RNA sequence: AACUACAUUAUUAAUGAAUAGAUCUACCUAUGAGAUGAUGUGGUUGUUCCACUAGGAUGAAGACGUGGCGUCCUAUUAAUUUCGUGCGAUGGUUGAUAAUAGGAUGCCACGUUCUCUUCCUAAGUGGAAGAGCCACGUCAUAUCACGAGUAAAUUCAUUCAUUGAUAGUGUGGUU
Number, nucleotide and partner (000 for none) at each position: 001a175002a174003c173004u172005a171006c170007a169008u000009u167010a166011u165012u164013a163014a162015u161016g000017a159018a158019u157020a000021g155022a154023u153024c000025u151026a150027c149028c000029u000030a000031u145032g144033a143034g000035a141036u140037g139038a138039u137040g000041u135042g134043g133044u132045u131046g000047u129048u128049c000050c000051a125052c124053u122054a121055g000056g119057a118058u000059g000060a000061a000062g113063a112064c111065g000066u000067g000068g107069c106070g105071u104072c103073c102074u101075a100076u099077u098078a097079a000080u000081u000082u000083c000084g000085u096086g000087c000088g000089a000090u000091g000092g000093u000094u000095g000096a085097u078098a077099a076100u075101a074102g073103g072104a071105u070106g069107c068108c000109a000110c000111g064112u063113u062114c000115u000116c000117u000118u057119c056120c000121u054122a053123a000124g052125u051126g000127g000128a048129a047130g000131a045132g044133c043134c042135a041136c000137g039138u038139c037140a036141u035142a000143u033144c032145a031146c000147g000148a000149g027150u026151a025152a000153a023154u022155u021156c000157a019158u018159u017160c000161a015162u014163u013164g012165a011166u010167a009168g000169u007170g006171u005172g004173g003174u002175u001
MIR807 microRNA precursor family: a 175-nucleotide RNA sequence from Oryza meridionalis. A search with the family's covariance model found it, with a score of 137 bits. For this family Rfam cites "Rice embryogenic calli express a unique set of microRNAs, suggesting regulatory roles of microRNAs in plant post-embryogenic development" (Luo et al., FEBS Lett, 2006). The family's consensus secondary structure was predicted with WAR. The organism belongs to Oryza, within Eukaryota.